[Rfam]
The record is a 158-nucleotide RNA from Blautia sp. An46, which matches "Clostridiales-1 RNA" in Rfam. Rfam 15.1 lists 1,172 matches to the family in 137 species. The base pairs follow the family's consensus structure, which is taken from published work. The match comes from Rfam's covariance-model search (110 bits). The organism belongs to Blautia, within Bacteria.
RNA sequence: UGAUACUAGGGGCGAAAGCUCAGGCAUUUCAUGCUUGCAUGAAUAUGCCUGAAUUUGAGCCCCGUCAAAACAUGAGCAUGGAAACCGGCAGGUUGGAAUGCGAAUGUUUUUCUGAAUUGCGGGAGCCUGCAGGGCGGAGCAAUUCAGGGGGGAUAUCA
Numbered sequence: 001u002g003a004u005a006c007u008a009g010g011g012g013c014g015a016a017a018g019c020u021c022a023g024g025c026a027u028u029u030c031a032u033g034c035u036u037g038c039a040u041g042a043a044u045a046u047g048c049c050u051g052a053a054u055u056u057g058a059g060c061c062c063c064g065u066c067a068a069a070a071c072a073u074g075a076g077c078a079u080g081g082a083a084a085c086c087g088g089c090a091g092g093u094u095g096g097a098a099u100g101c102g103a104a105u106g107u108u109u110u111u112c113u114g115a116a117u118u119g120c121g122g123g124a125g126c127c128u129g130c131a132g133g134g135c136g137g138a139g140c141a142a143u144u145c146a147g148g149g150g151g152g153a154u155a156u157c158a
Stems, first nucleotide, its partner, number of pairs: 001158005007152001010062004017055002020052008029042005067110007076101004083094004114145007125135004